Small nucleolar RNA SNORD11: an 80-nucleotide RNA from Xenopus tropicalis. The organism belongs to Silurana, within Eukaryota. The family is grouped with related families in Rfam's "SNORD11 clan". It scores 57 bits against the family's covariance model.
RNA sequence: GUGGUCAGUGAUGAUGUUUUAUUCCUAAUUGCCUGAUAACCCAUGAGGGCAAUUUUAGUCACUACCUCAUCUGAGACCAC
Numbered sequence: 001g002u003g004g005u006c007a008g009u010g011a012u013g014a015u016g017u018u019u020u021a022u023u024c025c026u027a028a029u030u031g032c033c034u035g036a037u038a039a040c041c042c043a044u045g046a047g048g049g050c051a052a053u054u055u056u057a058g059u060c061a062c063u064a065c066c067u068c069a070u071c072u073g074a075g076a077c078c079a080c
Stems, first nucleotide, its partner, number of pairs: 001080004